RNA sequence: GUGUGAAUCCCAGGGCGCUUCUCCUUUGGCACGGCGGCCGGCAUGUGUUGGUGAUAGGAGGCAGGAGCUAUAGCGAGUUGAGUCGAAGAAGGUCCAUGCACGGAAGCUACCUAGCUAGCCUUGUGGUGCGUGCCAAAGGAGAAUUGCCCUGCGAUUCACCU
Numbered sequence: 001g002u003g004u005g006a007a008u009c010c011c012a013g014g015g016c017g018c019u020u021c022u023c024c025u026u027u028g029g030c031a032c033g034g035c036g037g038c039c040g041g042c043a044u045g046u047g048u049u050g051g052u053g054a055u056a057g058g059a060g061g062c063a064g065g066a067g068c069u070a071u072a073g074c075g076a077g078u079u080g081a082g083u084c085g086a087a088g089a090a091g092g093u094c095c096a097u098g099c100a101c102g103g104a105a106g107c108u109a110c111c112u113a114g115c116u117a118g119c120c121u122u123g124u125g126g127u128g129c130g131u132g133c134c135a136a137a138g139g140a141g142a143a144u145u146g147c148c149c150u151g152c153g154a155u156u157c158a159c160c161u
Stems, first nucleotide, its partner, number of pairs: 005157005011151007019143001021141004027135007
Dot-bracket structure: ....(((((.(((((((.(.((((..(((((((...............................................................................................)))))))..)))).).))))))).)))))....